[Rfam]
RNA sequence: CAAAUCAUAGUUUAAUUAGUAGAACUUAUUCUUUGGGAGAGUAGAGUCUGAGUGCGAGUCUCGGUGAUUUGA
Numbered sequence: 001c002a003a004a005u006c007a008u009a010g011u012u013u014a015a016u017u018a019g020u021a022g023a024a025c026u027u028a029u030u031c032u033u034u035g036g037g038a039g040a041g042u043a044g045a046g047u048c049u050g051a052g053u054g055c056g057a058g059u060c061u062c063g064g065u066g067a068u069u070u071g072a
Base pairs, nucleotide, nucleotide: 001071002070003069004068005067006066007065010025011024012023013022027043028042029041030040031039048064049063050062051061052060